[Rfam]
RNA sequence: UAGAAGGAACCCGUAGAACCGAACUUGUGUGUUUUUUUGGUCACGGGUUCGAUUUUAAGGGUAUCUUCUCU
Number, nucleotide and partner (000 for none) at each position: 001u000002a069003g068004a067005a066006g065007g064008a000009a000010c061011c060012c059013g000014u000015a056016g055017a054018a053019c000020c051021g050022a049023a048024c047025u046026u045027g044028u043029g042030u000031g000032u000033u000034u000035u000036u000037u000038u000039g000040g000041u000042c029043a028044c027045g026046g025047g024048u023049u022050c021051g020052a000053u018054u017055u016056u015057a000058a000059g012060g011061g010062u000063a000064u007065c006066u005067u004068c003069u002070c000071u000
The family of this 71-nucleotide RNA from Sitophilus oryzae is "mir-10 microRNA precursor family". It scores 55 bits against the family's covariance model. Lineage of the source: Eukaryota > Panarthropoda > Altocrustacea > Endopterygota > Sitophilus. The base pairs follow the family's consensus structure, which was predicted with PFOLD.